The family of this 82-nucleotide sequence from Scleropages formosus is "mir-132 microRNA precursor family".
[Rfam]
RNA sequence: GCCCCUGGCGACCAUGGCUGUAGACUGUUACCACGGUGCUGUUGCUACAGUAACAAUCUAAAGCCACGGUCACCAUGGAAAC
Numbered sequence: 001g002c003c004c005c006u007g008g009c010g011a012c013c014a015u016g017g018c019u020g021u022a023g024a025c026u027g028u029u030a031c032c033a034c035g036g037u038g039c040u041g042u043u044g045c046u047a048c049a050g051u052a053a054c055a056a057u058c059u060a061a062a063g064c065c066a067c068g069g070u071c072a073c074c075a076u077g078g079a080a081a082c
Stems, first nucleotide, its partner, number of pairs: 012069002015066004023058002026055006

The organism belongs to Scleropages, within Eukaryota.